[Rfam]
RNA sequence: AAAGCAUCCGUGCUGUUACAUCAACUUUUACUCAUCCUUGCACUUUGAGGAAUUUUGACAGUGAAGAAAAACAUUGGGGACUAUGUAGUCUGAGAUGCUC
Numbered sequence: 001a002a003a004g005c006a007u008c009c010g011u012g013c014u015g016u017u018a019c020a021u022c023a024a025c026u027u028u029u030a031c032u033c034a035u036c037c038u039u040g041c042a043c044u045u046u047g048a049g050g051a052a053u054u055u056u057g058a059c060a061g062u063g064a065a066g067a068a069a070a071a072c073a074u075u076g077g078g079g080a081c082u083a084u085g086u087a088g089u090c091u092g093a094g095a096u097g098c099u100c
Base pairs, nucleotide, nucleotide: 003099004098005097006096007095008094
Shown here is a 100-nucleotide RNA from Hordeum vulgare, a member of the family "Small nucleolar RNA snoR26".
A search with the family's covariance model found it, with a score of 72 bits.
NCBI's taxonomy places the organism under Eukaryota, Euphyllophyta, Magnoliopsida, Pooideae, Hordeum vulgare.
It is annotated as a C/D-box small nucleolar RNA.
Its family is annotated with nucleolus and RNA processing in the Gene Ontology.
A reference for the family is Brown et al. (2001), "Multiple snoRNA gene clusters from Arabidopsis", RNA.